[Rfam]
RNA sequence: CGGGCUGGUCUUCGGACCCGGGUCCACCUGCGGCGGGGAUGUUCCCC
Numbered sequence: 001c002g003g004g005c006u007g008g009u010c011u012u013c014g015g016a017c018c019c020g021g022g023u024c025c026a027c028c029u030g031c032g033g034c035g036g037g038g039a040u041g042u043u044c045c046c047c
Stems, first nucleotide, its partner, number of pairs: 002025005007018004
The record is a 47-nucleotide RNA from Eubacterium sp. CAG:841, which matches "DUF3800-XI RNA" in Rfam. Actinobacteria, Firmicutes, Proteobacteria, Spirochaetes (1 example). The base pairs follow the family's consensus structure, which is taken from published work. It is one of the family's seed sequences.